[Rfam]
RNA sequence: AGUUCCCCGGAGAAUGAACUCCGGGAAGGUAGAGUAGAAAUUAAUAUGAUAAGAUCAAUAGUAGGAAUGAACGAACAUGUUUCAAU
Numbered sequence: 001a002g003u004u005c006c007c008c009g010g011a012g013a014a015u016g017a018a019c020u021c022c023g024g025g026a027a028g029g030u031a032g033a034g035u036a037g038a039a040a041u042u043a044a045u046a047u048g049a050u051a052a053g054a055u056c057a058a059u060a061g062u063a064g065g066a067a068u069g070a071a072c073g074a075a076c077a078u079g080u081u082u083c084a085a086u
Base pairs, nucleotide, nucleotide: 003027004026006025007024008023009022010021011020012019069082070081071080072079

Rfam assigns this 86-nucleotide sequence from Sarcandra glabra to the family "Plastid-rpl20 3UTR RNA". It is annotated as a cis-regulatory element. On this family, see Richter et al., Plant Commun 2023: "Retrograde signaling in plants: A critical review focusing on the GUN pathway and beyond". The sequence is in the family's curated seed alignment. Taxonomically the source falls in Sarcandra (Eukaryota, Spermatophyta, Magnoliopsida, Mesangiospermae). Rfam 15.1 lists 587 matches to the family in 315 species. The family's consensus secondary structure was predicted with LocARNA.